[Rfam]
RNA: L17-Actino-Proteobacteria ribosomal protein leader
Organism: Herbidospora cretacea
RNA sequence: CGAUCGUCUGAUCGGCCCGACCCCGGUACCUGAUACGGCCGGGGCGG
Numbered sequence: 001c002g003a004u005c006g007u008c009u010g011a012u013c014g015g016c017c018c019g020a021c022c023c024c025g026g027u028a029c030c031u032g033a034u035a036c037g038g039c040c041g042g043g044g045c046g047g
Base pairs, nucleotide, nucleotide: 001014002013003012004011005010017047018046019045021044022043023042024041025040026039027038